[Rfam]
RNA sequence: UUUCAGGAAAGCUAGGGUUCCGGUUUCAUUUGUAAUUUUCAUUACAUGAAACGUCUGGUCCGAGAGCGUUCCGGCCGCCAUCCAUUUGGCAGCUCCACGGCGGGACAAAAGCCCGGGAGGU
Numbered sequence: 001u002u003u004c005a006g007g008a009a010a011g012c013u014a015g016g017g018u019u020c021c022g023g024u025u026u027c028a029u030u031u032g033u034a035a036u037u038u039u040c041a042u043u044a045c046a047u048g049a050a051a052c053g054u055c056u057g058g059u060c061c062g063a064g065a066g067c068g069u070u071c072c073g074g075c076c077g078c079c080a081u082c083c084a085u086u087u088g089g090c091a092g093c094u095c096c097a098c099g100g101c102g103g104g105a106c107a108a109a110a111g112c113c114c115g116g117g118a119g120g121u
Base pairs, nucleotide, nucleotide: 007071008070009069011067012066015061016060020058021057022055023052024051025050026049027048028047073094074093075092077090078089079088080087096116098119102114103113104112
Notes: Shown here is a 121-nucleotide sequence from Amantichitinum ursilacus, a member of the family "Guanidine-I riboswitch aptamer". The family has 100 seed sequences and 1,509 matches in Rfam 15.1. The source organism's lineage runs through Bacteria, Pseudomonadati, Pseudomonadota, Neisseriales and Amantichitinum. About the family: This family represents a conserved RNA structure found upstream of the ykkC and yxkD genes in Bacillus subtilis and related genes in other bacteria. Pairs were carried over by alignment from the consensus structure.